Source information: The family of this 81-nucleotide sequence from Gelidibacter algens is "Flavo-1 RNA". Pairs were carried over by alignment from the consensus structure, which is taken from published work. The match comes from Rfam's covariance-model search (63 bits). By type it is a small RNA.
Nucleotides: 081
Base pairs, nucleotide, nucleotide: 010073011072012071014069015068019064020063024059025058026057030054031053032052033051034050035049036048037047
Number, partner (000 for none) and nucleotide at each position: 001000a002000c003000u004000g005000c006000g007000c008000u009000a010073g011072g012071g013000a014069u015068u016000g017000c018000a019064g020063c021000g022000g023000c024059a025058u026057c027000c028000u029000u030054u031053u032052u033051u034050u035049g036048u037047u038000c039000u040000u041000u042000u043000u044000c045000u046000g047037a048036a049035c050034a051033a052032a053031a054030a055000a056000a057026g058025a059024u060000a061000u062000a063020g064019c065000g066000g067000a068015a069014a070000g071012c072011c073010c074000g075000c076000u077000c078000g079000a080000g081000c